Rfam assigns this 69-nucleotide RNA sequence from Zhouia amylolytica to the family "S15-Flavobacteria ribosomal protein leader". Clan: Ribosomal Protein S15 Leader clan. For this family Rfam cites "Discovery of 20 novel ribosomal leader candidates in bacteria and archaea" (Eckert and Weinberg, BMC Microbiol, 2020). It is annotated as a cis-regulatory leader.
RNA sequence: UAUAUUUGCGGCCUGUAACAGAAGGUCUGUUAUGGGGUACAUAAAAAUCAUUUAAAUAAUAUUGGAAUG
Numbered sequence: 001u002a003u004a005u006u007u008g009c010g011g012c013c014u015g016u017a018a019c020a021g022a023a024g025g026u027c028u029g030u031u032a033u034g035g036g037g038u039a040c041a042u043a044a045a046a047a048u049c050a051u052u053u054a055a056a057u058a059a060u061a062u063u064g065g066a067a068u069g
Base pairs, nucleotide, nucleotide: 014034015033016032017031018030019029020028021027